[Rfam]
mraW RNA: a 102-nucleotide RNA sequence from Microbacterium sp. CH12i. The family's consensus secondary structure is taken from published work.
RNA sequence: UUCUGACCUUCGACUGUGAUGCCCCGCCGCUCCCGCCCCGACACACUUCCCCGGUGCCGGGUCGAGAAGCGGAGGGGGAUCAGAGUCAAAGGUCACCGGAAA
Numbered sequence: 001u002u003c004u005g006a007c008c009u010u011c012g013a014c015u016g017u018g019a020u021g022c023c024c025c026g027c028c029g030c031u032c033c034c035g036c037c038c039c040g041a042c043a044c045a046c047u048u049c050c051c052c053g054g055u056g057c058c059g060g061g062u063c064g065a066g067a068a069g070c071g072g073a074g075g076g077g078g079a080u081c082a083g084a085g086u087c088a089a090a091g092g093u094c095a096c097c098g099g100a101a102a
Stems, first nucleotide, its partner, number of pairs: 010089001012087004018081002022077004027072005032066001034064002037061004042056003